[Rfam]
RNA sequence: GAGGGUAUGGCCCCUCGCAAUCGGCUUGCAGGAGCGGGUUGCAAACCACCUUAAGCGACUUUGGCCAAAAGCCUGGGUCGUGAGCGUUAUGGAAAAGGUGCCUCGAGGCAUCAGGU
Numbered sequence: 001g002a003g004g005g006u007a008u009g010g011c012c013c014c015u016c017g018c019a020a021u022c023g024g025c026u027u028g029c030a031g032g033a034g035c036g037g038g039u040u041g042c043a044a045a046c047c048a049c050c051u052u053a054a055g056c057g058a059c060u061u062u063g064g065c066c067a068a069a070a071g072c073c074u075g076g077g078u079c080g081u082g083a084g085c086g087u088u089a090u091g092g093a094a095a096a097g098g099u100g101c102c103u104c105g106a107g108g109c110a111u112c113a114g115g116u
Stems, first nucleotide, its partner, number of pairs: 001016005017042006024035004047115001049092002052089003055081002058078003063073003097112006
Rfam assigns this 116-nucleotide sequence from Nitrosomonas communis to the family "Group II catalytic intron D1-D4-2".
The source organism's lineage runs through Bacteria, Pseudomonadota, Betaproteobacteria, Nitrosomonadales and Nitrosomonas.
It scores 104 bits against the family's covariance model.